This 426-nucleotide part of an RNA from Toxocara canis belongs to the Rfam family "Eukaryotic large subunit ribosomal RNA". The base pairs follow the family's consensus structure, which is taken from published work.

RNA sequence: UGACCUCAGCUCAGUCGUGAGCACCCGCUGAAUUUAAGCAUAUAACUAAGCGGAGGAAAAGAAACUAACGAGGAUUCCUCUAGUAACGGCGAGUGAAUGGGGAAAAGCCCAGCGCUGAAUCCAUUGGCCACUGGUCGCUUGGAAUUGUAGCGUAUAGGUGCGGUUGUCCGUUUGUUUCGCGCACCCAAAGUCCCCUUGAGUGGGGCUAUAGUCCAAAGAAGGUGCUAGACCUGUACGGGUGGCGAGACGAUCGGUUGAUUGCUCCUUGGAGUCGGGUUGCCUGGGAUCGCAGCCCAAAGUUGGUGGUAGACCUCAUCUAAGGCUAAAUAUGGCCACGAAACCGAUAGCAAACAAGUACCGUGAGGGAAAGUUGCAAAGAACUUUGAAGAGAGAGUUCAAGAGGGCGUGAAACCGCUGAGAUUGAAA
Dot-bracket structure: .......................((((((.....((....))......))))).).........((....))...(((((.....((.....))....)))))..((((...(((((.(((((.(((.......)))..))))..).)))))....((.((((...(....(((((((.(..((((...(.((((......))))).......(...)..((.......)).....)))))..)))))))......).)))).))........(((((((........)))))))......((((........))))...)))).................................((....))...............((((....))))..................................
A search with the family's covariance model found it, with a score of 3047 bits.